[Rfam]
RNA sequence: CCCUCCUACAAAGGCGUACUGUGGUUCCCUGUCUUUGGACACAGAAAAACUGAGGCAAAGAAAUGUGGACUUGGAGAAAUCUGGAGUCAGCUUGCUCCCUGCAGCCUCAAGAUCAACCACCCCACAUAG
Number, nucleotide and partner (000 for none) at each position: 001c000002c055003c054004u053005c052006c000007u000008a000009c000010a000011a000012a000013g000014g000015c000016g042017u041018a000019c038020u037021g000022u000023g029024g028025u000026u000027c000028c024029c023030u000031g000032u000033c000034u000035u000036u000037g020038g019039a000040c000041a017042c016043a000044g000045a000046a000047a000048a000049a000050c000051u000052g005053a004054g003055g002056c000057a000058a000059a000060g000061a000062a000063a000064u000065g000066u000067g122068g121069a000070c000071u119072u000073g000074g000075a000076g000077a000078a000079a000080u000081c000082u000083g000084g000085a000086g000087u000088c000089a107090g106091c000092u104093u103094g102095c101096u000097c000098c000099c000100u000101g095102c094103a093104g092105c000106c090107u089108c000109a000110a000111g000112a000113u000114c000115a000116a000117c000118c000119a071120c000121c068122c067123c000124a000125c000126a000127u000128a000129g000
RNA: Small nucleolar RNA SNORA38
Organism: Myotis davidii